RNA sequence: CUUUAUUGAGGAAAUGAAGUGCUUCCUGGCUUACAAAGUGUGAGUCGAACCGUUCUAAGAACUAAUGACUUCUACAAGCUU
Numbered sequence: 001c002u003u004u005a006u007u008g009a010g011g012a013a014a015u016g017a018a019g020u021g022c023u024u025c026c027u028g029g030c031u032u033a034c035a036a037a038g039u040g041u042g043a044g045u046c047g048a049a050c051c052g053u054u055c056u057a058a059g060a061a062c063u064a065a066u067g068a069c070u071u072c073u074a075c076a077a078g079c080u081u
Stems, first nucleotide, its partner, number of pairs: 010026004016072005052062003

Background:
Rfam assigns this 81-nucleotide sequence from Facklamia hominis to the family "Fluoride riboswitch aptamer (crcB RNA motif)". Its family is annotated with positive regulation of gene expression and response to fluoride in the Gene Ontology. The base pairs follow the family's consensus structure, which is taken from published work. The organism belongs to Facklamia hominis, within Bacteria.